[Rfam]
The family of this 120-nucleotide RNA sequence from Mesorhizobium sp. NBSH29 is "Rhizobiales sRNA Atu_C8". The match comes from Rfam's covariance-model search (98 bits). The source organism's lineage runs through Bacteria, Pseudomonadota, Alphaproteobacteria, Phyllobacteriaceae and Mesorhizobium. A reference for the family is Wilms et al. (2012), "Deep sequencing uncovers numerous small RNAs on all four replicons of the plant pathogen Agrobacterium tumefaciens", RNA Biol.
RNA sequence: CAUGACGCAAAAACUCAUUCUCGUGGUAGGAAGGCGUGUGGGCAAGGCGGUGUAACCGCCGGGCGGAAGCUCCCAUGCGCAAGACACAGGCUCCCUCGGGGGCCUUUUUUAUUGCCUGCA
Numbered sequence: 001c002a003u004g005a006c007g008c009a010a011a012a013a014c015u016c017a018u019u020c021u022c023g024u025g026g027u028a029g030g031a032a033g034g035c036g037u038g039u040g041g042g043c044a045a046g047g048c049g050g051u052g053u054a055a056c057c058g059c060c061g062g063g064c065g066g067a068a069g070c071u072c073c074c075a076u077g078c079g080c081a082a083g084a085c086a087c088a089g090g091c092u093c094c095c096u097c098g099g100g101g102g103c104c105u106u107u108u109u110u111a112u113u114g115c116c117u118g119c120a
Stems, first nucleotide, its partner, number of pairs: 029116002032113001034080009046060005063070002086106001088105007